[Rfam]
The family of this 164-nucleotide sequence from Actinomyces howellii is "c-di-AMP riboswitch aptamer (ydaO/yuaA leader)". Gene Ontology terms of the family: cyclic-di-AMP binding and regulation of gene expression.

RNA sequence: GUCCCGCCAGAGCUCUUAUCGACAGGUCCGGGGGAACCACUUCUCCGGUUCGUGGCACCGCCGAGGCGGUGCGGCGGACCUCGGGGUGAAGCCCGCAGCACGCGGGCCGGGCGUCUCCCGCCCGAACCCGACAGCUAACUCCGUCGGCUCACCAGGAGAUUCCA
Numbered sequence: 001g002u003c004c005c006g007c008c009a010g011a012g013c014u015c016u017u018a019u020c021g022a023c024a025g026g027u028c029c030g031g032g033g034g035a036a037c038c039a040c041u042u043c044u045c046c047g048g049u050u051c052g053u054g055g056c057a058c059c060g061c062c063g064a065g066g067c068g069g070u071g072c073g074g075c076g077g078a079c080c081u082c083g084g085g086g087u088g089a090a091g092c093c094c095g096c097a098g099c100a101c102g103c104g105g106g107c108c109g110g111g112c113g114u115c116u117c118c119c120g121c122c123c124g125a126a127c128c129c130g131a132c133a134g135c136u137a138a139c140u141c142c143g144u145c146g147g148c149u150c151a152c153c154a155g156g157a158g159a160u161u162c163c164a
Stems, first nucleotide, its partner, number of pairs: 006148003012027003029143005038083001084129003092106004109123004

This family represents a conserved RNA structure found upstream of the ydaO and yuaA genes in Bacillus subtilis and related genes in other bacteria. Pairs were carried over by alignment from the consensus structure.